[Rfam]
RNA sequence: UAAACAGCGAAGACGGAGAGAAACUGCGGUUGCGAUUCUCCAGAGAGCCGGUGGUUGCUGCGAACCGGUGAAUCCCCUGUCGUUUGAGCGCUCCUGAGCUGUCAGGCUGAACCGGAAGAAGUAGGUCUGAACGGAAGCCCCGUUAUAGGCAUCGGUCCGUCACCAGCGGACCGGUUGAGGCUGCUGUUGUGAAACAGCAGUGAAUGAGGGUGGUACCGCGAAACGAAGCUUUUCGUCCCUCAC
Dot-bracket structure: ......((......((((....((.(((.......(((........((((((...........))))))))).....))).)).......))))...))..(((((((...............))))))).(((.....))).....................................(((((((........))))))).....((((.......(((((.........)))))))))...
Annotation
Rfam assigns this 243-nucleotide RNA sequence from Aneurinibacillus danicus to the family "T-box leader". Rfam's curators write: Uncharged tRNA acts as the effector for transcription antitermination of genes in the T-box leader family. A reference for the family is Grundy et al. (1994), "Interaction between the acceptor end of tRNA and the T box stimulates antitermination in the Bacillus subtilis tyrS gene: a new role for the discriminator base", J Bacteriol.